RNA sequence: AUCCUUCCUUCUUGGCGCUCCUAUCGUAUGAAGUUAGAAGUGUAUGUAGUGGAAGGUAUAUCAUAUCCCUUUUGGGUGUUCGGGUCUCCUUCGGUGCCGUUGAAGUUGAAAGUCGAACGGUGUCAUCCUCUGGAUUCGAGACAUUC
Numbered sequence: 001a002u003c004c005u006u007c008c009u010u011c012u013u014g015g016c017g018c019u020c021c022u023a024u025c026g027u028a029u030g031a032a033g034u035u036a037g038a039a040g041u042g043u044a045u046g047u048a049g050u051g052g053a054a055g056g057u058a059u060a061u062c063a064u065a066u067c068c069c070u071u072u073u074g075g076g077u078g079u080u081c082g083g084g085u086c087u088c089c090u091u092c093g094g095u096g097c098c099g100u101u102g103a104a105g106u107u108g109a110a111a112g113u114c115g116a117a118c119g120g121u122g123u124c125a126u127c128c129u130c131u132g133g134a135u136u137c138g139a140g141a142c143a144u145u146c
Stems, first nucleotide, its partner, number of pairs: 003056006010049001015043004021037003067076003079140009093124002097120005
RNA: Nematode snoRNA ceN88
Organism: Nippostrongylus brasiliensis